[Rfam]
RNA sequence: CUGGGCUGAGGUAGUUGUUUGUACAGUUUUAGGGGUCUAUUAUUAUACCCUGUUAAGGAGCUAACUGUACAGACUACUGCCUUGCCCAG
Numbered sequence: 001c002u003g004g005g006c007u008g009a010g011g012u013a014g015u016u017g018u019u020u021g022u023a024c025a026g027u028u029u030u031a032g033g034g035g036u037c038u039a040u041u042a043u044u045a046u047a048c049c050c051u052g053u054u055a056a057g058g059a060g061c062u063a064a065c066u067g068u069a070c071a072g073a074c075u076a077c078u079g080c081c082u083u084g085c086c087c088a089g
Stems, first nucleotide, its partner, number of pairs: 001089006008083008017074011032051004053060002
A member of the RNA family "let-7 microRNA precursor family" from Danionella cerebrum, 89 nucleotides long.
The family's consensus secondary structure was predicted with RNAalifold.